Shown here is a 204-nucleotide RNA from Bacillus sp. 165, a member of the family "Bacillus sRNA ncr1575". Taxonomically the source falls in Bacillus (Bacteria, Bacillati, Bacilli, Caryophanales). Pairs were carried over by alignment from the consensus structure, which is taken from published work. A reference for the family is Irnov et al. (2010), "Identification of regulatory RNAs in Bacillus subtilis", Nucleic Acids Res.

[Rfam]
RNA sequence: UAAUAAUAUUAGAAGGGAUGAUGGGUGGACCAUGAUUAACUAAUCUUAUUUUAAAAAUUUGAAAUCACAUAUUUCAAAUCAUACGAAAUAGGAUUAGUCUGCUCAUUUUCUAUCAAUUGUAAAGUAAAGCUAUUAAUAAAAAUAGUUUAUUUGAUGAUGCAACGGUACGGCUAAUCCUUCCAAAUGAAAUGGGAGGAUUUUUUU
Numbered sequence: 001u002a003a004u005a006a007u008a009u010u011a012g013a014a015g016g017g018a019u020g021a022u023g024g025g026u027g028g029a030c031c032a033u034g035a036u037u038a039a040c041u042a043a044u045c046u047u048a049u050u051u052u053a054a055a056a057a058u059u060u061g062a063a064a065u066c067a068c069a070u071a072u073u074u075c076a077a078a079u080c081a082u083a084c085g086a087a088a089u090a091g092g093a094u095u096a097g098u099c100u101g102c103u104c105a106u107u108u109u110c111u112a113u114c115a116a117u118u119g120u121a122a123a124g125u126a127a128a129g130c131u132a133u134u135a136a137u138a139a140a141a142a143u144a145g146u147u148u149a150u151u152u153g154a155u156g157a158u159g160c161a162a163c164g165g166u167a168c169g170g171c172u173a174a175u176c177c178u179u180c181c182a183a184a185u186g187a188a189a190u191g192g193g194a195g196g197a198u199u200u201u202u203u204u
Base pairs, nucleotide, nucleotide: 015111016110017109018108022105023104024103025102028099029098030097041096042095043094044093045092046091047090048089049088050087051086052085057079058078059077060076061075062074063073064072065071123152124151129146130145131144132143133142134141173199174198175197176196177195178194179193180192181191182190

It is annotated as a small RNA.